Nucleotides: 083
Base pairs, nucleotide, nucleotide: 012030013029014028015027061081062080063079064078065077066076067075068074
Number, partner (000 for none) and nucleotide at each position: 001000c002000u003000g004000a005000u006000u007000a008000u009000u010000c011000g012030c013029g014028c015027c016000a017000c018000a019000c020000c021000u022000u023000a024000u025000c026000c027015g028014g029013u030012g031000g032000g033000u034000u035000a036000g037000c038000g039000c040000g041000c042000g043000u044000u045000c046000u047000u048000c049000a050000g051000u052000c053000g054000c055000c056000a057000a058000u059000g060000a061081a062080a063079c064078c065077c066076g067075c068074c069000c070000u071000u072000g073000a074068g075067g076066c077065g078064g079063g080062u081061u082000c083000u
Notes:
Rfam assigns this 83-nucleotide RNA from Dyella sp. AD56 to the family "Pseudomonas sRNA P9". Rfam's curators write: This small RNA (sRNA) was computationally identified in the genome of the opportunistic pathogen Pseudomonas aeruginosa and its expression verified by northern blot analysis. P9 appears to be conserved in several Pseudomonas species in addition to Bordetella spp. In both Pseudomonas and Bordetella spp P9 appears to be located upstream of a predicted threonine dehydratase gene. P9 has a predicted Rho independent terminator at the 3' end but the function of P9 is unknown. This sRNA also appears to be present in the Betaproteobacteria (Burkholderia and Ralstonia species). A search with the family's covariance model found it, with a score of 44 bits. The organism belongs to Dyella, within Bacteria. Pairs were carried over by alignment from the consensus structure, which was predicted with RNAalifold. On this family, see Livny et al., Nucleic Acids Res 2006: "Identification of 17 Pseudomonas aeruginosa sRNAs and prediction of sRNA-encoding genes in 10 diverse pathogens using the bioinformatic tool sRNAPredict2".